Record summary
This 84-nucleotide RNA sequence from Bombyx mori belongs to the Rfam family "mir-2807 microRNA precursor family". Rfam links the family to the GO terms RISC complex and miRNA-mediated post-transcriptional gene silencing. The source organism's lineage runs through Eukaryota, Opisthokonta, Ecdysozoa, Neoptera and Bombyx. The base pairs follow the family's consensus structure, which was predicted with RNAalifold. On this family, see Liu et al., BMC Genomics 2010: "MicroRNAs of Bombyx mori identified by Solexa sequencing".
RNA sequence: UUAAGCUAAGUACACAUGGAGUUAGCACGUUUGCGUACGUUUGCCGCUAGGGGCGCUGUUCUAACUCCAUACAAAUUUGAGUUA
Numbered sequence: 001u002u003a004a005g006c007u008a009a010g011u012a013c014a015c016a017u018g019g020a021g022u023u024a025g026c027a028c029g030u031u032u033g034c035g036u037a038c039g040u041u042u043g044c045c046g047c048u049a050g051g052g053g054c055g056c057u058g059u060u061c062u063a064a065c066u067c068c069a070u071a072c073a074a075a076u077u078u079g080a081g082u083u084a
Stems, first nucleotide, its partner, number of pairs: 008078004016070001018068001020066006027059003034052001036050001039047002